The family of this 140-nucleotide sequence from Brevibacterium casei is "Glycine riboswitch aptamer". From the family's description: This family represents the bacterial glycine riboswitch. Taxonomically the source falls in Brevibacterium casei (Bacteria, Actinomycetota, Actinomycetes, Micrococcales). Pairs were carried over by alignment from the consensus structure. A search with the family's covariance model found it, with a score of 35 bits.
RNA sequence: AGACAUGACGUGGGAGAGCUGCCCGGUCUCCGCGAUCGCUCCUCGGACACCCUCCGAGCCUGUGACCCGGACCGCAGUGCAGCGCCGUAGGUGCAAUUCCCUCCCCGGGAAACUCUCAGGCCCAGUACCACCGAUUGCAG
Numbered sequence: 001a002g003a004c005a006u007g008a009c010g011u012g013g014g015a016g017a018g019c020u021g022c023c024c025g026g027u028c029u030c031c032g033c034g035a036u037c038g039c040u041c042c043u044c045g046g047a048c049a050c051c052c053u054c055c056g057a058g059c060c061u062g063u064g065a066c067c068c069g070g071a072c073c074g075c076a077g078u079g080c081a082g083c084g085c086c087g088u089a090g091g092u093g094c095a096a097u098u099c100c101c102u103c104c105c106c107g108g109g110a111a112a113c114u115c116u117c118a119g120g121c122c123c124a125g126u127a128c129c130a131c132c133g134a135u136u137g138c139a140g
Stems, first nucleotide, its partner, number of pairs: 010131004019082004084121003087117001091115001093113001098108002